mir-27 microRNA precursor family: a 79-nucleotide RNA from Astyanax mexicanus. NCBI's taxonomy places the organism under Eukaryota, Deuterostomia, Gnathostomata, Ostariophysi, Astyanax.
[Rfam]
RNA sequence: AGCGGGUGCAGAGCUUAGCUGAUUGGUGAACAGCUGUUGGUCUCUCCUUUGUUCACAGUGGCUAAGUUCUUCACCUGGA
Numbered sequence: 001a002g003c004g005g006g007u008g009c010a011g012a013g014c015u016u017a018g019c020u021g022a023u024u025g026g027u028g029a030a031c032a033g034c035u036g037u038u039g040g041u042c043u044c045u046c047c048u049u050u051g052u053u054c055a056c057a058g059u060g061g062c063u064a065a066g067u068u069c070u071u072c073a074c075c076u077g078g079a
Base pairs, nucleotide, nucleotide: 011069012068013067014066015065016064017063018062019061020060026056027055028054029053030052031051032050
It scores 76 bits against the family's covariance model.